[Rfam]
RNA sequence: GCGCAUCAUGACCUUGGCUCUAGACUGCUUACUGCUUAUGGAGUCUAACAGCACAGUAACAGUCUACAGUCAUGGCUACUGAAGUCUG
Numbered sequence: 001g002c003g004c005a006u007c008a009u010g011a012c013c014u015u016g017g018c019u020c021u022a023g024a025c026u027g028c029u030u031a032c033u034g035c036u037u038a039u040g041g042a043g044u045c046u047a048a049c050a051g052c053a054c055a056g057u058a059a060c061a062g063u064c065u066a067c068a069g070u071c072a073u074g075g076c077u078a079c080u081g082a083a084g085u086c087u088g
Stems, first nucleotide, its partner, number of pairs: 012075002015072004023064005029059005